This 127-nucleotide RNA sequence from Dipodomys ordii belongs to the Rfam family "Small nucleolar RNA SNORA40". Rfam 15.1 lists 2,550 matches to the family in 517 species. It is annotated as an H/ACA-box small nucleolar RNA. The organism belongs to Dipodomys, within Eukaryota. From the family's description: The snoRNA ACA 40 belongs to the H/ACA family of snoRNAs and guides the pseudouridylation of 28S rRNA subunit at position U4565. The literature on the family includes a 1997 paper in J Mol Biol by Ofengand and Bakin, "Mapping to nucleotide resolution of pseudouridine residues in large subunit ribosomal RNAs from representative eukaryotes, prokaryotes, archaebacteria, mitochondria and chloroplasts".
RNA sequence: AGCACUUGUGUAUGUCUUUGUUUAACCUGUAACAAAGCUUCACAGACAGGUACAAACAGAAAGUCCUCUUUUGCAACCCCGAACUCACUGCUGAGAUGAGACUGUGCUACCUGUAAGAAGGAAUGUG
Numbered sequence: 001a002g003c004a005c006u007u008g009u010g011u012a013u014g015u016c017u018u019u020g021u022u023u024a025a026c027c028u029g030u031a032a033c034a035a036a037g038c039u040u041c042a043c044a045g046a047c048a049g050g051u052a053c054a055a056a057c058a059g060a061a062a063g064u065c066c067u068c069u070u071u072u073g074c075a076a077c078c079c080c081g082a083a084c085u086c087a088c089u090g091c092u093g094a095g096a097u098g099a100g101a102c103u104g105u106g107c108u109a110c111c112u113g114u115a116a117g118a119a120g121g122a123a124u125g126u127g
Stems, first nucleotide, its partner, number of pairs: 002053001004051006011044001014039001016037006063124002066121002069118005079106001080104002084100004